MIR821 microRNA precursor family: a 275-nucleotide sequence from Oryza sativa. Lineage of the source: Eukaryota > Viridiplantae > Liliopsida > Oryzoideae > Oryza sativa. Rfam 15.1 lists 1,438 matches to the family in 13 species.
RNA sequence: AAUUUCAGCUGAAAAAGUCAUGAACAUAAAAGUUGUAGAACUCAUCAAGAGCUACAACUUUUAUUUUGGUCAUUUCUUCAUCCGACAAAGUGAUAGUAACAUUGUUUACAAAAUUUACAUAUCCCGCAUAUGGUUUCAUAAGUUAUAAGAGAGAUAUGUAAAUUUUGUGAACAAUGUUACUAUCGCUUUAUCUGAUGAAGAAAUGACCAACAUAAAAGUUGUAGCUCUUGAUGAGUUAUACAAUUUUGUUGUGGAUGACUUUUUCAGUUGAAAUC
Numbered sequence: 001a002a003u004u005u006c007a008g009c010u011g012a013a014a015a016a017g018u019c020a021u022g023a024a025c026a027u028a029a030a031a032g033u034u035g036u037a038g039a040a041c042u043c044a045u046c047a048a049g050a051g052c053u054a055c056a057a058c059u060u061u062u063a064u065u066u067u068g069g070u071c072a073u074u075u076c077u078u079c080a081u082c083c084g085a086c087a088a089a090g091u092g093a094u095a096g097u098a099a100c101a102u103u104g105u106u107u108a109c110a111a112a113a114u115u116u117a118c119a120u121a122u123c124c125c126g127c128a129u130a131u132g133g134u135u136u137c138a139u140a141a142g143u144u145a146u147a148a149g150a151g152a153g154a155u156a157u158g159u160a161a162a163u164u165u166u167g168u169g170a171a172c173a174a175u176g177u178u179a180c181u182a183u184c185g186c187u188u189u190a191u192c193u194g195a196u197g198a199a200g201a202a203a204u205g206a207c208c209a210a211c212a213u214a215a216a217a218g219u220u221g222u223a224g225c226u227c228u229u230g231a232u233g234a235g236u237u238a239u240a241c242a243a244u245u246u247u248g249u250u251g252u253g254g255a256u257g258a259c260u261u262u263u264u265c266a267g268u269u270g271a272a273a274u275c
Stems, first nucleotide, its partner, number of pairs: 014262008024252001026250001030246008039237004044232010055221010066210002069207007077199005084192002087189006094182006101175012114162002117159006131145006